This 54-nucleotide RNA from Electrophorus electricus belongs to the Rfam family "UnaL2 LINE 3' element". Gene Ontology term of the family: transposition, RNA-mediated. On this family, see Baba et al., RNA 2004: "Solution structure of an RNA stem-loop derived from the 3' conserved region of eel LINE UnaL2". The eel long interspersed element (LINE) UnaL2 and its partner short interspersed element (SINE) share a conserved 3' tail containing a stem-loop that is critical for their retrotransposition. Presumably, the first step of retrotransposition is the recognition of their 3' tails by UnaL2-encoded reverse transcriptase. The solution structure of a 17-nucleotide RNA derived from the 3' tail of UnaL2 was determined by NMR. Lineage of the source: Eukaryota > Gnathostomata > Ostariophysi > Gymnotidae > Electrophorus. By type it is a cis-regulatory element.
RNA sequence: CUCACUCAUAAUUGUAAGUCACUUUGGAUAAAAGCGUCAGCUAAAUGCCGUAAA
Numbered sequence: 001c002u003c004a005c006u007c008a009u010a011a012u013u014g015u016a017a018g019u020c021a022c023u024u025u026g027g028a029u030a031a032a033a034g035c036g037u038c039a040g041c042u043a044a045a046u047g048c049c050g051u052a053a054a
Stems, first nucleotide, its partner, number of pairs: 013043001014041002020036001022034004